[Rfam]
RNA sequence: AUCCAUGACUCCAUGGGGGCCGCCGCCCGUGGCUGUCUCCCUUCCUAGGCAUGGAAGAGCAGUAACUUGCCGAUUGGCACAACUGGUACCUUCCUGUGGGUAUUAGUCGUUGACUGUUGCAAGGCACAG
Numbered sequence: 001a002u003c004c005a006u007g008a009c010u011c012c013a014u015g016g017g018g019g020c021c022g023c024c025g026c027c028c029g030u031g032g033c034u035g036u037c038u039c040c041c042u043u044c045c046u047a048g049g050c051a052u053g054g055a056a057g058a059g060c061a062g063u064a065a066c067u068u069g070c071c072g073a074u075u076g077g078c079a080c081a082a083c084u085g086g087u088a089c090c091u092u093c094c095u096g097u098g099g100g101u102a103u104u105a106g107u108c109g110u111u112g113a114c115u116g117u118u119g120c121a122a123g124g125c126a127c128a129g
Stems, first nucleotide, its partner, number of pairs: 002055006015041004020035001022033003068126004074122003077118001083106003088101004
The record is a 129-nucleotide sequence from Eurystomus gularis, which matches "Small nucleolar RNA SNORA24" in Rfam. The organism belongs to Eurystomus, within Eukaryota. It is annotated as an H/ACA-box small nucleolar RNA. Rfam's curators write: ACA24 is a member of the H/ACA class of snoRNA that guide the sites of modification of uridines to pseudouridines. A search with the family's covariance model found it, with a score of 60 bits.